[Rfam]
The family of this 75-nucleotide RNA from Crocodylus porosus is "Mammalian CPEB3 ribozyme". The base pairs follow the family's consensus structure, which is taken from published work. On this family, see Salehi-Ashtiani et al., Science 2006: "A genomewide search for ribozymes reveals an HDV-like sequence in the human CPEB3 gene".
RNA sequence: AAAUCAUUUGAGAAGGUCAUAGCAGAAGAAGUCACAGCAUGGCCUGUCAGAUUCCAGUGAAUUGUGAAUUCUGCU
Numbered sequence: 001a002a003a004u005c006a007u008u009u010g011a012g013a014a015g016g017u018c019a020u021a022g023c024a025g026a027a028g029a030a031g032u033c034a035c036a037g038c039a040u041g042g043c044c045u046g047u048c049a050g051a052u053u054c055c056a057g058u059g060a061a062u063u064g065u066g067a068a069u070u071c072u073g074c075u
Base pairs, nucleotide, nucleotide: 015044016043017042018041021075022074023073024072025071026070027069028040048064049063051062052061053060054059